Nuclear RNase P: a 311-nucleotide sequence from Muraenolepis orangiensis. For this family Rfam cites "Ribonuclease P: unity and diversity in a tRNA processing ribozyme" (Frank and Pace, Annu Rev Biochem, 1998). By type it is a ribozyme. The family is grouped with related families in Rfam's "RNaseP clan". Ribonuclease P (RNase P) is a ubiquitous endoribonuclease, found in archaea, bacteria and eukarya as well as chloroplasts and mitochondria. The source organism's lineage runs through Eukaryota, Metazoa, Neopterygii, Muraenolepididae and Muraenolepis. The family's consensus secondary structure is taken from published work.
[Rfam]
RNA sequence: GUGGGUGGAAGCUCAUUGUAGAGGUCACAUGCAGAGUGCUCAGUCACUCGACCAAUCACCUCGGGGAAGGUCUGAGACAGGAGCCAAUUGUCGCCCUAGCAGGGUGUCACCUGAUUACGGGUGAGUGGGUGCACAGAAACAUUGUGCCACGGUGUGUUGUUCUCACAAGAGAAGCUAGGUGGCGCUAAUUCUCAGCGGCCCCUGGUGGAUGUGAACUCACUAGGCUUGGAAACACUCACGGCUGGCGAUUGAGUGCGAUGGAUGAGGUGGAGCACAGCUCCAGAACCCAAUUCAGACUACUCUCCGCCCAC
Numbered sequence: 001g002u003g004g005g006u007g008g009a010a011g012c013u014c015a016u017u018g019u020a021g022a023g024g025u026c027a028c029a030u031g032c033a034g035a036g037u038g039c040u041c042a043g044u045c046a047c048u049c050g051a052c053c054a055a056u057c058a059c060c061u062c063g064g065g066g067a068a069g070g071u072c073u074g075a076g077a078c079a080g081g082a083g084c085c086a087a088u089u090g091u092c093g094c095c096c097u098a099g100c101a102g103g104g105u106g107u108c109a110c111c112u113g114a115u116u117a118c119g120g121g122u123g124a125g126u127g128g129g130u131g132c133a134c135a136g137a138a139a140c141a142u143u144g145u146g147c148c149a150c151g152g153u154g155u156g157u158u159g160u161u162c163u164c165a166c167a168a169g170a171g172a173a174g175c176u177a178g179g180u181g182g183c184g185c186u187a188a189u190u191c192u193c194a195g196c197g198g199c200c201c202c203u204g205g206u207g208g209a210u211g212u213g214a215a216c217u218c219a220c221u222a223g224g225c226u227u228g229g230a231a232a233c234a235c236u237c238a239c240g241g242c243u244g245g246c247g248a249u250u251g252a253g254u255g256c257g258a259u260g261g262a263u264g265a266g267g268u269g270g271a272g273c274a275c276a277g278c279u280c281c282a283g284a285a286c287c288c289a290a291u292u293c294a295g296a297c298u299a300c301u302c303u304c305c306g307c308c309c310a311c
Base pairs, nucleotide, nucleotide: 001311002310003309004308007305008304009303012266013265014264015263016262017261021062022061023060024059034049035048036047037046038045072295073294074293075292076291082243083242084241085240092106093105094104095103096102107124108123109122110121111120112119125239126238127237128236129235130234131233146225147224148223268282269281270280271279272278273277